Overview: The family of this 350-nucleotide sequence is "transfer-messenger RNA". Clan: tRNA clan.
RNA sequence: GGGGGCGAUCGGUUUCGACGAAAUAUGCAUCUUUCUAAAUGGCAUGCCGAGUCCCAGAAUCUCGUAAAUAAUCUGGAAAAACCAUAAAUGCCGAUAACGGCUACAUGGCCGCUGCUUAAGUAAGUGGUCCGUCCUUAGUUUAGUGCGUCUAUGGCUUAACUAAAGGGCGUCAAAUACAUAGACUGGUUCUGGUUGUGUCUGUGAUAUCAGGAUGAGAAUUAAACAGACUGUGUUUAUAAUAGUUUUGUCAUCAGGACAGUUAUAAGCAAGAUUAAUCUGAUUGACUAAGCGUGUAGAUAUUUUUUUAGGUUCUAUCUCGGACGGGAGUUCGAUUCUCCCCGCCUCCACAA
Numbered sequence: 001g002g003g004g005g006c007g008a009u010c011g012g013u014u015u016c017g018a019c020g021a022a023a024u025a026u027g028c029a030u031c032u033u034u035c036u037a038a039a040u041g042g043c044a045u046g047c048c049g050a051g052u053c054c055c056a057g058a059a060u061c062u063c064g065u066a067a068a069u070a071a072u073c074u075g076g077a078a079a080a081a082c083c084a085u086a087a088a089u090g091c092c093g094a095u096a097a098c099g100g101c102u103a104c105a106u107g108g109c110c111g112c113u114g115c116u117u118a119a120g121u122a123a124g125u126g127g128u129c130c131g132u133c134c135u136u137a138g139u140u141u142a143g144u145g146c147g148u149c150u151a152u153g154g155c156u157u158a159a160c161u162a163a164a165g166g167g168c169g170u171c172a173a174a175u176a177c178a179u180a181g182a183c184u185g186g187u188u189c190u191g192g193u194u195g196u197g198u199c200u201g202u203g204a205u206a207u208c209a210g211g212a213u214g215a216g217a218a219u220u221a222a223a224c225a226g227a228c229u230g231u232g233u234u235u236a237u238a239a240u241a242g243u244u245u246u247g248u249c250a251u252c253a254g255g256a257c258a259g260u261u262a263u264a265a266g267c268a269a270g271a272u273u274a275a276u277c278u279g280a281u282u283g284a285c286u287a288a289g290c291g292u293g294u295a296g297a298u299a300u301u302u303u304u305u306u307a308g309g310u311u312c313u314a315u316c317u318c319g320g321a322c323g324g325g326a327g328u329u330c331g332a333u334u335c336u337c338c339c340c341g342c343c344u345c346c347a348c349a350a
Stems, first nucleotide, its partner, number of pairs: 001346007019319003023315003027311001031309003037302005043293005048064004054076005108128006116120001130169006137161001139159002142156001147183007186213007197228006231268010243255002247285004251280003323339005

By type it is a non-coding RNA gene. Bacterial tmRNA, also known as 10Sa RNA or SsrA, is named for its dual tRNA and mRNA-like properties. The base pairs follow the family's consensus structure, which is taken from published work.